[Rfam]
RNA sequence: GUUCAUCUUCAGGGCAGGGUGUAAUUCCCGACCGGCGGUUAAAGCCCGCGACCUAUGUUUUUUGAUAGUGAUUUGGUGUAAUUCCAAAGCCGACAGUUAAAGUCUGGUAUGAAGAAGAUCGAG
Numbered sequence: 001g002u003u004c005a006u007c008u009u010c011a012g013g014g015c016a017g018g019g020u021g022u023a024a025u026u027c028c029c030g031a032c033c034g035g036c037g038g039u040u041a042a043a044g045c046c047c048g049c050g051a052c053c054u055a056u057g058u059u060u061u062u063u064g065a066u067a068g069u070g071a072u073u074u075g076g077u078g079u080a081a082u083u084c085c086a087a088a089g090c091c092g093a094c095a096g097u098u099a100a101a102g103u104c105u106g107g108u109a110u111g112a113a114g115a116a117g118a119u120c121g122a123g
Base pairs, nucleotide, nucleotide: 003121005119006118007117008116009115010114017029018028019027031103032102033092034091035049036048037047038046044090045089052068072088073087074086075085076084094106095105096104